Record summary:
This 314-nucleotide sequence from Chrysemys picta belongs to the Rfam family "Nuclear RNase P". The organism belongs to Chrysemys picta, within Eukaryota. The match comes from Rfam's covariance-model search (155 bits).
[Rfam]
RNA sequence: GUCAGAGGAAAGCUCACCAUUGAGGUCACAUACAGGGUACUUGUCACUUGGUAUUCAAUACCUCUGGGAAGGUCUGAGAGAAGAGCCAUUAGCUGCCCUUGCAGGGCAUCACCUGCUGCAGGGGAAUGAGUUAUCAGCUAUGUGGGGCCUGGGUUGGGACAUGUGUGGCAGGAGAAGCCAGAGGGGAUGCUUCCCUGGCAGAUGCCCGUUCUCCUAAGGGCAUUGGGACAGGCUCAGGCUCAUGGCUGGCACCACUGGGCUCAAUGGGAUGAGGUGGGGCCUCAUAACCCAACUCAGACUACUCUCCCUCUGAC
Numbered sequence: 001g002u003c004a005g006a007g008g009a010a011a012g013c014u015c016a017c018c019a020u021u022g023a024g025g026u027c028a029c030a031u032a033c034a035g036g037g038u039a040c041u042u043g044u045c046a047c048u049u050g051g052u053a054u055u056c057a058a059u060a061c062c063u064c065u066g067g068g069a070a071g072g073u074c075u076g077a078g079a080g081a082a083g084a085g086c087c088a089u090u091a092g093c094u095g096c097c098c099u100u101g102c103a104g105g106g107c108a109u110c111a112c113c114u115g116c117u118g119c120a121g122g123g124g125a126a127u128g129a130g131u132u133a134u135c136a137g138c139u140a141u142g143u144g145g146g147g148c149c150u151g152g153g154u155u156g157g158g159a160c161a162u163g164u165g166u167g168g169c170a171g172g173a174g175a176a177g178c179c180a181g182a183g184g185g186g187a188u189g190c191u192u193c194c195c196u197g198g199c200a201g202a203u204g205c206c207c208g209u210u211c212u213c214c215u216a217a218g219g220g221c222a223u224u225g226g227g228a229c230a231g232g233c234u235c236a237g238g239c240u241c242a243u244g245g246c247u248g249g250c251a252c253c254a255c256u257g258g259g260c261u262c263a264a265u266g267g268g269a270u271g272a273g274g275u276g277g278g279g280c281c282u283c284a285u286a287a288c289c290c291a292a293c294u295c296a297g298a299c300u301a302c303u304c305u306c307c308c309u310c311u312g313a314c
Stems, first nucleotide, its partner, number of pairs: 001314004008307001010305001013273004017268002022064004035056006074297005084247004094108005109125002112122003127236006147221004274285004
Record summary:
The family is grouped with related families in Rfam's "RNaseP clan".